[Rfam]
RNA sequence: GUGUCCCUCCUAGGGGAGGGACAGAGUUCUUGCUUGCAAGAGCUCAGGGUGAGGAC
Numbered sequence: 001g002u003g004u005c006c007c008u009c010c011u012a013g014g015g016g017a018g019g020g021a022c023a024g025a026g027u028u029c030u031u032g033c034u035u036g037c038a039a040g041a042g043c044u045c046a047g048g049g050u051g052a053g054g055a056c
Base pairs, nucleotide, nucleotide: 004021005020006019007018008017009016010015024045025044026043027042028041029040030039031038032037
RNA: Whalefall-1 RNA